A member of the RNA family "Flavo-1 RNA" from Flavobacterium sp. ALD4, 79 nucleotides long.
By type it is a small RNA.
RNA sequence: GUUUCGCAUGAAGGAUGGCAGUAUAAAUCCUUUGUGAAACGUAGUGCAACAAAGAUUGUAGCGUACAGCCUGACCCUGA
Number, nucleotide and partner (000 for none) at each position: 001g000002u000003u000004u000005c000006g000007c000008a000009u000010g000011a000012a071013g070014g069015a000016u067017g066018g000019c000020a000021g062022u061023a000024u000025a000026a057027a056028u055029c054030c000031u000032u052033u051034g050035u049036g000037a000038a000039a045040c000041g000042u000043a000044g000045u039046g000047c000048a000049a035050c034051a033052a032053a000054g029055a028056u027057u026058g000059u000060a000061g022062c021063g000064u000065a000066c017067a016068g000069c014070c013071u012072g000073a000074c000075c000076c000077u000078g000079a000
Overview: The organism belongs to Flavobacterium, within Bacteria.